[Rfam]
Nucleotides: 347
Base pairs, nucleotide, nucleotide: 005155006154007153008152009151010150011149012148040096041095042094043093053089054088055087056086057085058084059083060082061081072143073142074141075139076138077137078135079134080133160273161272162271163270164269165268166267167257168256169255170254171253173251174250177245178244179243180242181241182240183239196217197216198215199214200213202212203211204210205209219231220230221229222228286339287338288337289336291333292332293331294330297327301323302322305319306318307317308316
Number, partner (000 for none) and nucleotide at each position: 001000u002000u003000u004000c005155g006154c007153g008152g009151g010150g011149u012148g013000u014000c015000u016000c017000a018000u019000c020000u021000a022000a023000c024000c025000c026000u027000a028000a029000a030000u031000c032000c033000g034000u035000g036000c037000g038000a039000a040096c041095u042094c043093c044000u045000g046000u047000c048000c049000u050000u051000a052000a053089c054088g055087u056086u057085u058084g059083c060082u061081g062000u063000u064000u065000u066000u067000u068000u069000g070000u071000u072143u073142c074141u075139g076138g077137c078135u079134u080133u081061c082060a083059g084058u085057g086056a087055a088054c089053g090000a091000c092000a093043g094042g095041a096040g097000g098000u099000a100000u101000u102000u103000g104000a105000a106000g107000c108000g109000g110000c111000g112000c113000u114000g115000g116000c117000a118000a119000c120000u121000u122000u123000u124000a125000c126000g127000a128000a129000c130000a131000a132000a133080a134079a135078a136000a137077g138076c139075c140000a141074a142073g143072a144000u145000a146000a147000u148012c149011a150010c151009u152008c153007c154006g155005u156000c157000g158000u159000g160273u161272u162271c163270a164269g165268u166267u167257u168256c169255c170254c171253g172000u173251c174250a175000g176000a177245a178244a179243c180242a181241c182240c183239g184000u185000g186000a187000a188000u189000g190000u191000c192000c193000u194000g195000c196217c197216g198215u199214g200213g201000u202212c203211a204210g205209c206000u207000u208000g209205g210204c211203u212202g213200c214199c215198g216197c217196g218000a219231a220230g221229a222228g223000u224000u225000c226000g227000u228222c229221u230220c231219u232000a233000c234000u235000g236000c237000u238000c239183c240182g241181g242180u243179g244178u245177u246000u247000u248000c249000a250174u251173g252000u253171c254170g255169g256168g257167a258000c259000u260000u261000g262000u263000u264000g265000a266000u267166a268165a269164c270163u271162g272161a273160g274000c275000a276000g277000a278000u279000u280000a281000a282000a283000a284000c285000u286339g287338a288337g289336c290000a291333g292332g293331g294330u295000g296000a297327c298000u299000u300000u301323a302322c303000c304000a305319g306318a307317u308316c309000u310000u311000a312000a313000a314000g315000u316308g317307g318306u319305c320000c321000g322302g323301u324000u325000a326000g327297g328000a329000a330294g331293c332292c333291u334000a335000a336289g337288c338287u339286c340000a341000a342000a343000c344000a345000c346000c347000u
The family of this 347-nucleotide RNA sequence from Perca fluviatilis is "Vertebrate telomerase RNA". By type it is a non-coding RNA gene. The organism belongs to Perca, within Eukaryota. The family has 37 seed sequences and 523 matches in Rfam 15.1. Rfam's curators write: Telomerase is a ribonucleoprotein reverse transcriptase that synthesises telomeric DNA. Telomerase RNAs differ greatly in sequence and structure between vertebrates, ciliates and yeasts, but they share a 5' pseudoknot structure close to the template sequence. Vertebrate telomerase RNAs have a 3' H/ACA snoRNA-like domain.